[Rfam]
RNA: azaaromatic riboswitch aptamer (yjdF RNA)
RNA sequence: AAUAGCAAGGAUAAAAACGCAACGUGUGUAGCAAUACAUACUAGAGCCGGUAGGUAGCCCGGCCGUCACGUAAGGAUUCGUGGUAAGUAACCUGCCCCUCCGGGUUGUCCGUUCUUUGCUCAUCAAUC
Numbered sequence: 001a002a003u004a005g006c007a008a009g010g011a012u013a014a015a016a017a018c019g020c021a022a023c024g025u026g027u028g029u030a031g032c033a034a035u036a037c038a039u040a041c042u043a044g045a046g047c048c049g050g051u052a053g054g055u056a057g058c059c060c061g062g063c064c065g066u067c068a069c070g071u072a073a074g075g076a077u078u079c080g081u082g083g084u085a086a087g088u089a090a091c092c093u094g095c096c097c098c099u100c101c102g103g104g105u106u107g108u109c110c111g112u113u114c115u116u117u118g119c120u121c122a123u124c125a126a127u128c
Base pairs, nucleotide, nucleotide: 004120005119006118007117008116009115010114011113046063047062048061049060050059065084066083067082068081069080070079094105095104096103097102